[Rfam]
RNA sequence: UCUGCCCCCUAGAGGCAUUACCAAAGUGACUGCUAUGUCAUAUUUGGAAUUAGGUGGCAAAGAGAAAAAGGCUAUGUCUACGCUCAGUGUUCUUAAACUUGUGAGCACUUAGAAUGAUUAAUAGCCACACAAUG
Number, nucleotide and partner (000 for none) at each position: 001u000002c000003u059004g058005c057006c056007c000008c054009c053010u052011a000012g000013a000014g000015g000016c000017a000018u000019u000020a000021c047022c046023a045024a044025a000026g000027u000028g000029a000030c000031u000032g000033c000034u000035a000036u000037g000038u000039c000040a000041u000042a000043u000044u024045u023046g022047g021048a000049a000050u000051u000052a010053g009054g008055u000056g006057g005058c004059a003060a000061a000062g000063a000064g000065a000066a000067a000068a000069a000070g126071g125072c124073u000074a000075u000076g000077u000078c000079u116080a115081c000082g000083c112084u111085c000086a000087g000088u107089g106090u105091u104092c103093u000094u000095a000096a000097a000098c000099u000100u000101g000102u000103g092104a091105g090106c089107a088108c000109u000110u000111a084112g083113a000114a000115u080116g079117a000118u000119u000120a000121a000122u000123a000124g072125c071126c070127a000128c000129a000130c000131a000132a000133u000134g000
A member of the RNA family "Small nucleolar RNA SNORA43" from Monodelphis domestica, 134 nucleotides long. Rfam's curators write: ACA43 is a member of the H/ACA class of snoRNA that guide the sites of modification of uridines to pseudouridines. Rfam 15.1 lists 492 matches to the family in 142 species. Gene Ontology terms of the family: nucleolus and RNA processing. The source organism's lineage runs through Eukaryota, Opisthokonta, Deuterostomia, Craniata and Monodelphis.